[Rfam]
Annotation: This 125-nucleotide RNA from Endobacterium cereale belongs to the Rfam family "Alphaproteobacterial ar14". Its family is annotated with biological process involved in symbiotic interaction in the Gene Ontology. Pairs were carried over by alignment from the consensus structure.
RNA sequence: AAAUUCGGGGUCGCGCAUCUCCUCCUCCCAAGCGCCUCCUUGAUAGACUAGCGAUCCUCCUCCUCCCGGUCGCUGGUCGUUUUCUACGACGCCCACCGGACCUCCUCCCCCGGUGGGCGUUUCAC
Dot-bracket structure: ......(((...((((...............))))...)))....((((((((((.............))))))))))..........(((((((((((..........))))))))))).....
Smr14C2 was renamed NfeR1 (Nodule Formation Efficiency RNA) highly expressed in salt stress and during the symbiotic interaction on legume roots. Taxonomically the source falls in Endobacterium (Bacteria, Pseudomonadati, Alphaproteobacteria, Hyphomicrobiales).